[Rfam]
The family of this 305-nucleotide RNA sequence from Rhodococcus jostii is "Mycobacterium smegmatis small RNA 1". The family's consensus secondary structure was predicted with CMfinder. Mycobacterium smegmatis small RNA 1 is highly expressed during stationary phase of growth.
RNA sequence: ACGGAAGAACGGAAGGCCAAGGUCGACCCAGAAGAGAAGGAUCGAUCUCCCGACCAGGAUUCCCAGCACGGGCACUAGGUACCCACGCGAAGCAUAAGCCACUAUAAGGGCAGAAGCGUUGUGGGCCUGCGAGACCCGAGUCUUCACCGGCAAGGACCCUGCACAGGUUGCAAGGACGACCCGAGGAUAUUCGGACUCUCGCCGAGGCCACCCACACAACCCACCUUUGCACGCUUGGUAACCGGUUGUCCGUGCUAACGGGCGGCGAAGUCGACACCAGUCGGCAGCGCCGCCCGUUUCACAUA
Number, nucleotide and partner (000 for none) at each position: 001a000002c000003g063004g062005a000006a061007g060008a000009a000010c057011g000012g055013a000014a000015g051016g050017c000018c000019a000020a048021g047022g000023u000024c044025g043026a042027c000028c040029c039030a000031g000032a000033a000034g000035a000036g000037a000038a000039g029040g028041a000042u026043c025044g024045a000046u000047c021048u020049c000050c016051c015052g000053a000054c000055c012056a000057g010058g000059a000060u007061u006062c004063c003064c000065a256066g255067c254068a253069c252070g251071g250072g249073c000074a000075c245076u244077a000078g243079g242080u241081a000082c000083c238084c237085a236086c000087g234088c233089g232090a000091a000092g230093c229094a000095u000096a000097a000098g111099c110100c109101a000102c000103u000104a000105u000106a000107a000108g000109g100110g099111c098112a000113g000114a000115a000116g000117c000118g220119u219120u218121g217122u216123g215124g209125g208126c207127c206128u205129g202130c201131g200132a199133g000134a000135c000136c194137c193138g192139a191140g000141u000142c000143u000144u187145c186146a000147c183148c000149g181150g180151c178152a000153a000154g000155g000156a000157c175158c174159c000160u172161g171162c170163a169164c000165a000166g000167g000168u000169u163170g162171c161172a160173a000174g158175g157176a000177c000178g151179a000180c150181c149182c000183g147184a000185g000186g145187a144188u000189a000190u000191u139192c138193g137194g136195a000196c000197u000198c000199u132200c131201g130202c129203c000204g000205a128206g127207g126208c125209c124210a000211c000212c000213c000214a000215c123216a122217c121218a120219a119220c118221c000222c000223a000224c000225c000226u000227u000228u000229g093230c092231a000232c089233g088234c087235u000236u085237g084238g083239u000240a000241a080242c079243c078244g076245g075246u000247u000248g000249u072250c071251c070252g069253u068254g067255c066256u065257a000258a297259c296260g295261g294262g293263c292264g291265g290266c289267g288268a000269a000270g285271u284272c283273g000274a000275c000276a000277c000278c000279a000280g000281u000282c000283g272284g271285c270286a000287g000288c267289g266290c265291c264292g263293c262294c261295c260296g259297u258298u000299u000300c000301a000302c000303a000304u000305a000
Overview
A reference for the family is Hnilicova et al. (2014), "Ms1, a novel sRNA interacting with the RNA polymerase core in mycobacteria", Nucleic Acids Res.